[Rfam]
RNA: MIR807 microRNA precursor family
RNA sequence: AACCACACUACUAGUGGAUUCACCCGCGAGAUGACGUGACUGUUUCACCUAGGACAAAUAUAUGGCAUCCUAUUACCAGCCAUCGCACGAAAUUAAUAGGAUGCCACGUCCUCAUCCUAGAUGGAACAACCACAUCAUCUCACGGAUGAAUCCAUUCAUCAAUAGUGUGGUU
Numbered sequence: 001a002a003c004c005a006c007a008c009u010a011c012u013a014g015u016g017g018a019u020u021c022a023c024c025c026g027c028g029a030g031a032u033g034a035c036g037u038g039a040c041u042g043u044u045u046c047a048c049c050u051a052g053g054a055c056a057a058a059u060a061u062a063u064g065g066c067a068u069c070c071u072a073u074u075a076c077c078a079g080c081c082a083u084c085g086c087a088c089g090a091a092a093u094u095a096a097u098a099g100g101a102u103g104c105c106a107c108g109u110c111c112u113c114a115u116c117c118u119a120g121a122u123g124g125a126a127c128a129a130c131c132a133c134a135u136c137a138u139c140u141c142a143c144g145g146a147u148g149a150a151u152c153c154a155u156u157c158a159u160c161a162a163u164a165g166u167g168u169g170g171u172u
Stems, first nucleotide, its partner, number of pairs: 001172007009164002012161001013156003017152006024145001026143001028141002031138004037132002041128004047122001050119002053116002060109002065104011082093002